[Rfam]
RNA sequence: AGGUCAUUUCAAAGAGGGCUUGUGGAGCCAUGAGACCAAGAGCUCUUAACGCUGUGACCAAAGACUGAUGUUCUCCACAGGAUGCCAUAAUCACUCAGUAGUAGUGCUGUGUUUUCCUGAGGAGAUACAAGA
Numbered sequence: 001a002g003g004u005c006a007u008u009u010c011a012a013a014g015a016g017g018g019c020u021u022g023u024g025g026a027g028c029c030a031u032g033a034g035a036c037c038a039a040g041a042g043c044u045c046u047u048a049a050c051g052c053u054g055u056g057a058c059c060a061a062a063g064a065c066u067g068a069u070g071u072u073c074u075c076c077a078c079a080g081g082a083u084g085c086c087a088u089a090a091u092c093a094c095u096c097a098g099u100a101g102u103a104g105u106g107c108u109g110u111g112u113u114u115u116c117c118u119g120a121g122g123a124g125a126u127a128c129a130a131g132a
Stems, first nucleotide, its partner, number of pairs: 002059006014047008023039001027036001072125005079118004087110003092106004
RNA: Small nucleolar RNA SNORA25
Organism: Oryctolagus cuniculus